[Rfam]
RNA sequence: UAUUGGAAUUAUUCAAAAUAACAUAGCAACAAGUUAAAAUAAGACUAUUCGUCAACACCUUGUAAAAGUGCGCACCGAUUCGGUGUUUUUUUU
Numbered sequence: 001u002a003u004u005g006g007a008a009u010u011a012u013u014c015a016a017a018a019u020a021a022c023a024u025a026g027c028a029a030c031a032a033g034u035u036a037a038a039a040u041a042a043g044a045c046u047a048u049u050c051g052u053c054a055a056c057a058c059c060u061u062g063u064a065a066a067a068g069u070g071c072g073c074a075c076c077g078a079u080u081c082g083g084u085g086u087u088u089u090u091u092u093u
Stems, first nucleotide, its partner, number of pairs: 001039001003037003009026004043050002060067002072086006
Dot-bracket structure: (.(((...((((..........))))........))).)...((....)).........((....))....((((((...)))))).......